U2 spliceosomal RNA: a 191-nucleotide RNA from Schistosoma curassoni. Pairs were carried over by alignment from the consensus structure, which is taken from published work. Its Rfam clan is "U2 clan".
RNA sequence: UUUGCUUCUCGACUCUCUGAGCUAAGAUCAUGUGUAGUAUCUGUUCUUUGCAGUGUAAUUUCUGCAACAGUCUCUAAACCGAGACCAACGAAAUUACAUGUAUUUUUCGCAUUCGAAGGGGUGAUGUCAGCUUACUCAACCCCGUCCACGUGUUGGCCUCGUAUUGUAUUACGAUGUUAUGUACAUAAAAA
Numbered sequence: 001u002u003u004g005c006u007u008c009u010c011g012a013c014u015c016u017c018u019g020a021g022c023u024a025a026g027a028u029c030a031u032g033u034g035u036a037g038u039a040u041c042u043g044u045u046c047u048u049u050g051c052a053g054u055g056u057a058a059u060u061u062c063u064g065c066a067a068c069a070g071u072c073u074c075u076a077a078a079c080c081g082a083g084a085c086c087a088a089c090g091a092a093a094u095u096a097c098a099u100g101u102a103u104u105u106u107u108c109g110c111a112u113u114c115g116a117a118g119g120g121g122u123g124a125u126g127u128c129a130g131c132u133u134a135c136u137c138a139a140c141c142c143c144g145u146c147c148a149c150g151u152g153u154u155g156g157c158c159u160c161g162u163a164u165u166g167u168a169u170u171a172c173g174a175u176g177u178u179a180u181g182u183a184c185a186u187a188a189a190a191a
Stems, first nucleotide, its partner, number of pairs: 007027003011023001013021002048067006070085005115147001117145001119143003127138001129136002150184004157176001159174004
Dot-bracket structure: ......(((.(.((.....)).).)))....................((((((........))))))..(((((......))))).............................(.(.(((.....(.((....)).)..))).).)..((((...(.((((........)))).)....)))).......